The family of this 79-nucleotide sequence from Eumeta japonica is "Small nucleolar RNA Me28S-Cm3227". A search with the family's covariance model found it, with a score of 53 bits. The source organism's lineage runs through Eukaryota, Ecdysozoa, Panorpida, Psychidae and Eumeta. It is annotated as a C/D-box small nucleolar RNA. For this family Rfam cites "Genome-wide analyses of two families of snoRNA genes from Drosophila melanogaster, demonstrating the extensive utilization of introns for coding of snoRNAs" (Huang et al., RNA, 2005).

RNA sequence: AUUCACAUGAUGAAACCUUUUAUCUGAAUCAUGUGCUGAUUCCAAAAUCAAAUUAAACCAAAAGGAUUCUGACAUUAGU
Numbered sequence: 001a002u003u004c005a006c007a008u009g010a011u012g013a014a015a016c017c018u019u020u021u022a023u024c025u026g027a028a029u030c031a032u033g034u035g036c037u038g039a040u041u042c043c044a045a046a047a048u049c050a051a052a053u054u055a056a057a058c059c060a061a062a063a064g065g066a067u068u069c070u071g072a073c074a075u076u077a078g079u
Stems, first nucleotide, its partner, number of pairs: 001079003005076001